RNA sequence: CAGUAACAUCGAGAGUAGGGCUGACGUCCUCACCAACCUGCCCGCCUGGGUAAGGUGGUUUGCUCAAGAAGAUACCUGUAACCUAUCUUCUAUUAAGCGAUGUGGUCGAUUCAGACAACCAAUCAGGUGAAU
Numbered sequence: 001c002a003g004u005a006a007c008a009u010c011g012a013g014a015g016u017a018g019g020g021c022u023g024a025c026g027u028c029c030u031c032a033c034c035a036a037c038c039u040g041c042c043c044g045c046c047u048g049g050g051u052a053a054g055g056u057g058g059u060u061u062g063c064u065c066a067a068g069a070a071g072a073u074a075c076c077u078g079u080a081a082c083c084u085a086u087c088u089u090c091u092a093u094u095a096a097g098c099g100a101u102g103u104g105g106u107c108g109a110u111u112c113a114g115a116c117a118a119c120c121a122a123u124c125a126g127g128u129g130a131a132u
Stems, first nucleotide, its partner, number of pairs: 006103005015031001017030005032059003037055003040051003044128005105116003
This 132-nucleotide RNA from Motiliproteus sp. MSK22-1 belongs to the Rfam family "SAM-I/IV (S-adenosyl methionine) riboswitch aptamer".
Rfam links the family to the GO terms regulation of gene expression and S-adenosylmethionine metabolic process.
For this family Rfam cites "The aptamer core of SAM-IV riboswitches mimics the ligand-binding site of SAM-I riboswitches" (Weinberg et al., RNA, 2008).
The match comes from Rfam's covariance-model search (60 bits).